Small nucleolar RNA SNORA44: a 129-nucleotide RNA sequence from Cavia porcellus. The organism belongs to Cavia, within Eukaryota. The base pairs follow the family's consensus structure, which was predicted with PFOLD. For this family Rfam cites "RNomics: an experimental approach that identifies 201 candidates for novel, small, non-messenger RNAs in mouse" (Huttenhofer et al., EMBO J, 2001). Its family is annotated with nucleolus and RNA processing in the Gene Ontology.
RNA sequence: UAGCGUAAUUUUAUGAAUUUAAAUUUAUUUUAAAUAGAAUCUUGAGCUGCAUGUAAGAGCAACCUAGAGAGACUCUGACAGCUCAGGUAGGCCCAAUACCUGAGGCUGCCACUCACCUUUCCUAUAAGG
Numbered sequence: 001u002a003g004c005g006u007a008a009u010u011u012u013a014u015g016a017a018u019u020u021a022a023a024u025u026u027a028u029u030u031u032a033a034a035u036a037g038a039a040u041c042u043u044g045a046g047c048u049g050c051a052u053g054u055a056a057g058a059g060c061a062a063c064c065u066a067g068a069g070a071g072a073c074u075c076u077g078a079c080a081g082c083u084c085a086g087g088u089a090g091g092c093c094c095a096a097u098a099c100c101u102g103a104g105g106c107u108g109c110c111a112c113u114c115a116c117c118u119u120u121c122c123u124a125u126a127a128g129g
Stems, first nucleotide, its partner, number of pairs: 011037002018033002021030002067121005081109002084102004